Shown here is a 72-nucleotide RNA from Callorhinchus milii, a member of the family "tRNA". By type it is a transfer RNA.

RNA sequence: AGUCCUGUAGCUCAGUGGUUAGAGCACUCGCUUUGCAAGCGAGAGACCUGAGUUCAAUUCCGGGCAAGACGA
Numbered sequence: 001a002g003u004c005c006u007g008u009a010g011c012u013c014a015g016u017g018g019u020u021a022g023a024g025c026a027c028u029c030g031c032u033u034u035g036c037a038a039g040c041g042a043g044a045g046a047c048c049u050g051a052g053u054u055c056a057a058u059u060c061c062g063g064g065c066a067a068g069a070c071g072a
Base pairs, nucleotide, nucleotide: 002070003069004068006066007065010025011024012023013022027043028042029041030040031039048064049063052060
The literature on the family includes a 1993 paper in Trends Biochem Sci by Hou, "The tertiary structure of tRNA and the development of the genetic code". Rfam links the family to the GO term triplet codon-amino acid adaptor activity.